[Rfam]
Record summary: This 88-nucleotide RNA sequence from Metabacillus harenarius belongs to the Rfam family "BsrC". By type it is a small RNA. Pairs were carried over by alignment from the consensus structure, which was predicted with CMfinder.

RNA sequence: AAUGACGCAUGAGAUAUAAGCCCUUCCUCUCUUAUAUCGUUGCGGCUCCGAGGCCGCGCCACUUGAAUUUAAAGCGUCUUAGAUGUUU
Number, nucleotide and partner (000 for none) at each position: 001a000002a000003u000004g000005a000006c000007g000008c000009a000010u000011g000012a000013g000014a000015u000016a000017u000018a000019a000020g000021c000022c000023c000024u000025u000026c000027c000028u000029c000030u000031c000032u000033u000034a068035u067036a000037u000038c000039g062040u061041u058042g057043c056044g055045g054046c053047u052048c000049c000050g000051a000052g047053g046054c045055c044056g043057c042058g041059c000060c000061a040062c039063u000064u000065g000066a000067a035068u034069u000070u000071a000072a000073a000074g000075c000076g000077u000078c000079u000080u000081a000082g000083a000084u000085g000086u000087u000088u000
Annotation:
About the family: The 301 nucleotide sequence from Kouji Nakamura has been trimmed to a highly conserved ~85 nucleotide long core to form this family.